Description: This 71-nucleotide RNA belongs to the Rfam family "mir-19 microRNA precursor family".
RNA sequence: UUAGUUUUGCAGGUUUGCAUCCAGCUGUAUGAUACUCUGCUGUGCAAAUCCAUGCAAAACUGACUGUGGCA
Numbered sequence: 001u002u003a004g005u006u007u008u009g010c011a012g013g014u015u016u017g018c019a020u021c022c023a024g025c026u027g028u029a030u031g032a033u034a035c036u037c038u039g040c041u042g043u044g045c046a047a048a049u050c051c052a053u054g055c056a057a058a059a060c061u062g063a064c065u066g067u068g069g070c071a
Stems, first nucleotide, its partner, number of pairs: 001063011012051002014048007023041003
Dot-bracket structure: ((((((((((((((((((((..(((.............)))))))))).)).)))))))))))........
The base pairs follow the family's consensus structure, which was predicted with RNAalifold. Rfam links the family to the GO terms miRNA-mediated post-transcriptional gene silencing and RISC complex. The sequence is in the family's curated seed alignment.